[Rfam]
RNA sequence: GGGUCUGCAGUUCACCCAGGCAUCGCCGUUCUUCGGAACACGCUAAACCUGACA
Number, nucleotide and partner (000 for none) at each position: 001g017002g016003g015004u014005c000006u000007g000008c000009a000010g000011u000012u000013c000014a004015c003016c002017c001018a000019g000020g000021c000022a000023u000024c000025g000026c000027c000028g039029u038030u037031c036032u000033u000034c000035g000036g031037a030038a029039c028040a000041c000042g000043c000044u000045a000046a000047a000048c000049c000050u000051g000052a000053c000054a000
The record is a 54-nucleotide sequence from Rhizobium phaseoli, which matches "COG3860 RNA" in Rfam. It is one of the family's seed sequences. It is annotated as a cis-regulatory element. The organism belongs to Rhizobium phaseoli, within Bacteria. The base pairs follow the family's consensus structure, which is taken from published work.